[Rfam]
RNA sequence: AGGUAAUGUCUACUAUCCUUUAUCGAUGUAGGCACUCGGCUGCGCUGUGGGAGAAGAUCUCCUUAGACCUGACUGGUCGGUGGUGUGGUGUGAGGGCGGGUUCGAUGCCCG
Number, nucleotide and partner (000 for none) at each position: 001a019002g018003g017004u000005a000006a000007u034008g033009u032010c031011u030012a029013c028014u000015a000016u000017c003018c002019u001020u000021u000022a000023u000024c000025g000026a000027u000028g013029u012030a011031g010032g009033c008034a007035c094036u093037c092038g091039g089040c088041u087042g086043c085044g084045c083046u082047g000048u000049g063050g062051g061052a060053g059054a058055a000056g000057a000058u054059c053060u052061c051062c050063u049064u000065a000066g078067a077068c076069c075070u000071g000072a000073c000074u000075g069076g068077u067078c066079g000080g000081u000082g046083g045084u044085g043086u042087g041088g040089u039090g000091u038092g037093a036094g035095g000096g000097c111098g110099g109100g108101u107102u000103c000104g000105a000106u000107g101108c100109c099110c098111g097

Shown here is a 111-nucleotide RNA from Ammoniphilus sp. CFH 90114, a member of the family "epsC RNA". Pairs were carried over by alignment from the consensus structure, which is taken from published work. A search with the family's covariance model found it, with a score of 100 bits. The family has 30 seed sequences and 450 matches in Rfam 15.1.